Source information: ODC internal ribosome entry site (IRES): a 137-nucleotide RNA sequence from Orycteropus afer. The family has 13 seed sequences and 437 matches in Rfam 15.1. Its family is annotated with ribosome binding in the Gene Ontology. Taxonomically the source falls in Orycteropus afer (Eukaryota, Opisthokonta, Vertebrata, Orycteropus).

[Rfam]
RNA sequence: GUUUCCAUUGGUGCACCAAGGGUUCAAACCUAUUAUUCAGUGGGAUUUGGAAUUCCUAGACAAUUGCCUUUGUGAAGAGCUGGAAGUCAUUUCUUUACAUUCUGUCUCUUAGUUUUCCAUAGGAACAUCCAGAAACC
Numbered sequence: 001g002u003u004u005c006c007a008u009u010g011g012u013g014c015a016c017c018a019a020g021g022g023u024u025c026a027a028a029c030c031u032a033u034u035a036u037u038c039a040g041u042g043g044g045a046u047u048u049g050g051a052a053u054u055c056c057u058a059g060a061c062a063a064u065u066g067c068c069u070u071u072g073u074g075a076a077g078a079g080c081u082g083g084a085a086g087u088c089a090u091u092u093c094u095u096u097a098c099a100u101u102c103u104g105u106c107u108c109u110u111a112g113u114u115u116u117c118c119a120u121a122g123g124a125a126c127a128u129c130c131a132g133a134a135a136c137c
Stems, first nucleotide, its partner, number of pairs: 006083001010080001012078001016074001017072007026064001042057004090135005100125004